[Rfam]
RNA sequence: UGGAAGCGAAGGGAGCUCCCUUCAGCCCACUCAUGGAUGUGAUAAAGGAAUUGAACUAGCUGCCGACUCAUUCAUCUAACCACUCAGUAGAAAAGGAUUCAUUUUAUGCUACUUUGAUUGAAUGAAUGAUGCGGGAGAUCGUUUUCAUCCCUUUCCAAUCUAUGCUUGGACUGAAGGGAGCUCCCUCGUUCUUUUCA
Numbered sequence: 001u002g003g004a005a006g007c008g009a010a011g012g013g014a015g016c017u018c019c020c021u022u023c024a025g026c027c028c029a030c031u032c033a034u035g036g037a038u039g040u041g042a043u044a045a046a047g048g049a050a051u052u053g054a055a056c057u058a059g060c061u062g063c064c065g066a067c068u069c070a071u072u073c074a075u076c077u078a079a080c081c082a083c084u085c086a087g088u089a090g091a092a093a094a095g096g097a098u099u100c101a102u103u104u105u106a107u108g109c110u111a112c113u114u115u116g117a118u119u120g121a122a123u124g125a126a127u128g129a130u131g132c133g134g135g136a137g138a139u140c141g142u143u144u145u146c147a148u149c150c151c152u153u154u155c156c157a158a159u160c161u162a163u164g165c166u167u168g169g170a171c172u173g174a175a176g177g178g179a180g181c182u183c184c185c186u187c188g189u190u191c192u193u194u195u196c197a
Stems, first nucleotide, its partner, number of pairs: 013183008023173003027169003036160001060137002063134003069128004077120001
Dot-bracket structure: ............((((((((..(((.(((......(.......................((.(((...((((....(..........................................)....))))...))).))......................)......))).)))..))))))))..............

Annotation:
MIR159 microRNA precursor family: a 197-nucleotide RNA from Lactuca saligna. Rfam links the family to the GO terms RISC complex and miRNA-mediated post-transcriptional gene silencing. Rfam 15.1 lists 3,649 matches to the family in 242 species. A reference for the family is Jones-Rhoades and Bartel (2004), "Computational identification of plant microRNAs and their targets, including a stress-induced miRNA", Mol Cell.